RNA sequence: UUCUUAUCCAGAGAGGUGGAGGGACUGGCCCUUUGAUACCUCGGCAACAGGCUUAUUUAAAGUACUGUGCCAAUUCCAGAAGCGUAAUGCUUGAAGAUAAGAA
Numbered sequence: 001u002u003c004u005u006a007u008c009c010a011g012a013g014a015g016g017u018g019g020a021g022g023g024a025c026u027g028g029c030c031c032u033u034u035g036a037u038a039c040c041u042c043g044g045c046a047a048c049a050g051g052c053u054u055a056u057u058u059a060a061a062g063u064a065c066u067g068u069g070c071c072a073a074u075u076c077c078a079g080a081a082g083c084g085u086a087a088u089g090c091u092u093g094a095a096g097a098u099a100a101g102a103a
Base pairs, nucleotide, nucleotide: 001103002102003101004100005099006098007097008096013042014041015040016039017038021031022030023029025079026078027077028076043071044070045069046068048067049066051063052062053061075095080092081091082090083089084088